The family of this 123-nucleotide sequence is "LOOT RNA". By type it is a small RNA. Rfam's curators put it in the seed alignment.
[Rfam]
RNA sequence: GACCUAACCCUUCGGGAUAAAUUCGGAAGGUAUGGUCGAAAGUCGCAUCGAGUACAAAGACCCCAUCAUCAGGGUCGCUCGAUGCGCCAUAUAGGGAAACCUGUAUGUGAGCCGCAAGGCUCU
Numbered sequence: 001g002a003c004c005u006a007a008c009c010c011u012u013c014g015g016g017a018u019a020a021a022u023u024c025g026g027a028a029g030g031u032a033u034g035g036u037c038g039a040a041a042g043u044c045g046c047a048u049c050g051a052g053u054a055c056a057a058a059g060a061c062c063c064c065a066u067c068a069u070c071a072g073g074g075u076c077g078c079u080c081g082a083u084g085c086g087c088c089a090u091a092u093a094g095g096g097a098a099a100c101c102u103g104u105a106u107g108u109g110a111g112c113c114g115c116a117a118g119g120c121u122c123u
Base pairs, nucleotide, nucleotide: 001037002036003035004034009030010029011028012027013026015024016023017022044086045085046084047083048082049081050080051079052078053077059076060075061074062073063072088107089106090105091104092103093102094101095100109122110121111120112119113118